[Rfam]
RNA sequence: UUCUUCCCAAGGCACACCUGUCCGAAAGGCGGGGUCGCAAAGCCACCGGUCUAACGCAGCGGCGCGAAGCGCACUGACACGAUAGCGGGGCUGCCAGG
Numbered sequence: 001u002u003c004u005u006c007c008c009a010a011g012g013c014a015c016a017c018c019u020g021u022c023c024g025a026a027a028g029g030c031g032g033g034g035u036c037g038c039a040a041a042g043c044c045a046c047c048g049g050u051c052u053a054a055c056g057c058a059g060c061g062g063c064g065c066g067a068a069g070c071g072c073a074c075u076g077a078c079a080c081g082a083u084a085g086c087g088g089g090g091c092u093g094c095c096a097g098g
Stems, first nucleotide, its partner, number of pairs: 012038002017033004022029002041092004046088003049083003057076003

Annotation
Rfam assigns this 98-nucleotide RNA from Hylemonella gracilis to the family "c-di-GMP-I riboswitch aptamer". Pairs were carried over by alignment from the consensus structure, which is taken from published work. A search with the family's covariance model found it, with a score of 59 bits.